[Rfam]
RNA sequence: AUCGCUCUCCGGGUGAUCGCGGCUGCGGCAGUAAUGUCAGUAGUCGAGGAAAGUCCGGACACCAGAGGGCAGUGCGCCUCGUGAAGAACGGGGGAUAUCAAGGCUCAAGCCUUGAUAGACGGAAAGUGCAGCAGAGAGUAGACCGCCGAUGGAUCUCCGGAUCACAGGUAAGGGUGAAAGGGUGGGGUAAGAGCCCACCGCCCAGAGGGUAACCGCUGGGGCACGGUAAACCCCGCAUGGUGCAAGACAUAACAGGGGAAGGGUCGCCCGCCCGAGUAGGAUCCCCGGGUAAUAGUCGCACGACUGCUCCGGCAGCGUCCUGUCUCGGCAGGAAGACAAAUGAUCACACAGUCCCGCUCGCGGGAUGGACAGAAUCCGGCUUACAGGAGAGCGAUGAGC
Number, nucleotide and partner (000 for none) at each position: 001a395002u394003c393004g392005c391006u390007c389008u388009c387010c386011g384012g000013g347014u346015g345016a344017u343018c342019g000020c046021g045022g044023c043024u042025g041026c040027g000028g038029c000030a000031g000032u000033a000034a000035u000036g000037u000038c028039a000040g026041u025042a024043g023044u022045c021046g020047a000048g000049g000050a000051a382052a381053g380054u000055c379056c378057g377058g376059a375060c242061a241062c240063c239064a000065g000066a000067g273068g272069g271070c270071a000072g238073u237074g236075c235076g234077c093078c092079u000080c090081g089082u088083g000084a000085a000086g000087a000088a082089c081090g080091g000092g078093g077094g120095a000096u117097a116098u115099c114100a113101a112102g111103g110104c109105u000106c000107a000108a000109g104110c103111c102112u101113u100114g099115a098116u097117a096118g000119a000120c094121g233122g232123a000124a000125a000126g231127u230128g227129c226130a000131g000132c000133a000134g000135a000136g000137a000138g000139u000140a000141g000142a000143c173144c172145g169146c168147c167148g000149a000150u166151g165152g163153a162154u161155c160156u000157c000158c000159g000160g155161a154162u153163c152164a000165c151166a150167g147168g146169u145170a000171a000172g144173g143174g000175u000176g000177a000178a000179a000180g000181g199182g198183u197184g196185g195186g194187g000188u000189a000190a000191g000192a000193g000194c186195c185196c184197a183198c182199c181200g222201c220202c219203c218204a217205g216206a000207g214208g213209g000210u000211a000212a000213c208214c207215g000216c205217u204218g203219g202220g201221g000222c200223a000224c000225g000226g129227u128228a000229a000230a127231c126232c122233c121234c076235g075236c074237a073238u072239g063240g062241u061242g060243c000244a000245a000246g297247a296248c295249a000250u000251a000252a000253c000254a000255g000256g286257g285258g284259a000260a282261g000262g000263g000264u000265c279266g000267c000268c276269c000270g070271c069272c068273c067274g000275a000276g268277u000278a000279g265280g000281a000282u260283c000284c258285c257286c256287g000288g000289g000290u000291a000292a000293u000294a000295g248296u247297c246298g000299c000300a000301c000302g000303a000304c331305u330306g329307c328308u327309c000310c000311g000312g000313c000314a000315g000316c000317g000318u000319c000320c000321u000322g000323u000324c000325u000326c000327g308328g307329c306330a305331g304332g000333a000334a000335g000336a000337c000338a000339a000340a000341u000342g018343a017344u016345c015346a014347c013348a000349c000350a000351g000352u000353c000354c000355c000356g000357c000358u000359c000360g000361c000362g000363g000364g000365a000366u000367g000368g000369a000370c000371a000372g000373a000374a000375u059376c058377c057378g056379g055380c053381u052382u051383a000384c011385a000386g010387g009388a008389g007390a006391g005392c004393g003394a002395u001396g000397a000398g000399c000
The record is a 399-nucleotide RNA from Rubritalea squalenifaciens, which matches "Bacterial RNase P class A" in Rfam.
Gene Ontology terms of the family: ribonuclease P activity, tRNA processing and dimeric ribonuclease P complex.
The organism belongs to Rubritalea squalenifaciens, within Bacteria.